[Rfam]
RNA sequence: AGCGAGGCUAGAGUCACACCUGAAUAUGAACCGUUGUCUCGGUGUGCUAUAGCACUCGUAGAGGAAACAUCUGAGUUUAUUCAUUGGCUGUAGUCUCCCCCGUGACCCAGCCAAUCACCGACUCUGAAACACAA
Numbered sequence: 001a002g003c004g005a006g007g008c009u010a011g012a013g014u015c016a017c018a019c020c021u022g023a024a025u026a027u028g029a030a031c032c033g034u035u036g037u038c039u040c041g042g043u044g045u046g047c048u049a050u051a052g053c054a055c056u057c058g059u060a061g062a063g064g065a066a067a068c069a070u071c072u073g074a075g076u077u078u079a080u081u082c083a084u085u086g087g088c089u090g091u092a093g094u095c096u097c098c099c100c101c102g103u104g105a106c107c108c109a110g111c112c113a114a115u116c117a118c119c120g121a122c123u124c125u126g127a128a129a130c131a132c133a134a
Base pairs, nucleotide, nucleotide: 002059003058004057005056006055007053008052009051012048013047015046016045017044018043019042020041024037025036026035071126073124074123075122076121077120083115084114085113086112087111089109090108093106094105095104
RNA: Small nucleolar RNA SNORA3/SNORA45 family